Shown here is a 189-nucleotide sequence from Paenibacillus sp. HGF7, a member of the family "c-di-AMP riboswitch aptamer (ydaO/yuaA leader)".
The organism belongs to Paenibacillus, within Bacteria.
RNA sequence: UUGUGUAGAGAGCCGAAACUUCUUCCGUUUCCCGGAUUUUCCAGGAGAGGAGGAGGUGCGGGGGAUGAUUUAUUUCGGAACCGUGUGUAUGACUGCGGCGUCCGAUAGGGGUGAAUCGCUGGCAGCAGCGUGGGCGACUUCUCAGUCCGAACCCGACAACUAACCUCGUAGGCAAUACCGAGAAGGAGC
Numbered sequence: 001u002u003g004u005g006u007a008g009a010g011a012g013c014c015g016a017a018a019c020u021u022c023u024u025c026c027g028u029u030u031c032c033c034g035g036a037u038u039u040u041c042c043a044g045g046a047g048a049g050g051a052g053g054a055g056g057u058g059c060g061g062g063g064g065a066u067g068a069u070u071u072a073u074u075u076c077g078g079a080a081c082c083g084u085g086u087g088u089a090u091g092a093c094u095g096c097g098g099c100g101u102c103c104g105a106u107a108g109g110g111g112u113g114a115a116u117c118g119c120u121g122g123c124a125g126c127a128g129c130g131u132g133g134g135c136g137a138c139u140u141c142u143c144a145g146u147c148c149g150a151a152c153c154c155g156a157c158a159a160c161u162a163a164c165c166u167c168g169u170a171g172g173c174a175a176u177a178c179c180g181a182g183a184a185g186g187a188g189c
Stems, first nucleotide, its partner, number of pairs: 012173003018057009058169006069107001109154003117130004132148004